Rfam assigns this 108-nucleotide RNA sequence from Prunus yedoensis to the family "MIR394 microRNA precursor family". The family's consensus secondary structure was predicted with WAR. Rfam 15.1 lists 724 matches to the family in 216 species. A search with the family's covariance model found it, with a score of 97 bits.

RNA sequence: CUUACAGAGUUUAUUGGCAUUCUGUCCACCUCCUCUCUUUGUUCACUCUCUGUGUAUUAGAAGAUAGUACGUGUGGAGGUGGGCAUACUGCCAACUGAGCUCUGUUGG
Numbered sequence: 001c002u003u004a005c006a007g008a009g010u011u012u013a014u015u016g017g018c019a020u021u022c023u024g025u026c027c028a029c030c031u032c033c034u035c036u037c038u039u040u041g042u043u044c045a046c047u048c049u050c051u052g053u054g055u056a057u058u059a060g061a062a063g064a065u066a067g068u069a070c071g072u073g074u075g076g077a078g079g080u081g082g083g084c085a086u087a088c089u090g091c092c093a094a095c096u097g098a099g100c101u102c103u104g105u106u107g108g
Stems, first nucleotide, its partner, number of pairs: 011098001014094006023085011